The family of this 85-nucleotide RNA from Callorhinus ursinus is "NoRC associated RNA, pRNA". The family's consensus secondary structure is taken from published work. NCBI's taxonomy places the organism under Eukaryota, Metazoa, Bilateria, Theria, Callorhinus. By type it is a non-coding RNA gene. It scores 39 bits against the family's covariance model. Rfam links the family to the GO term chromatin remodeling.
RNA sequence: UGAUGGGGUAAGGCUAGGGGCCAGUAGCUGGGCCACAGUCCCAGGAGGGUCUGGUGAUCCGUGUCUAGGCCCUGUUACCCUACGG
Numbered sequence: 001u002g003a004u005g006g007g008g009u010a011a012g013g014c015u016a017g018g019g020g021c022c023a024g025u026a027g028c029u030g031g032g033c034c035a036c037a038g039u040c041c042c043a044g045g046a047g048g049g050u051c052u053g054g055u056g057a058u059c060c061g062u063g064u065c066u067a068g069g070c071c072c073u074g075u076u077a078c079c080c081u082a083c084g085g
Stems, first nucleotide, its partner, number of pairs: 004082001006080001008078004017073004027064002029061002032055004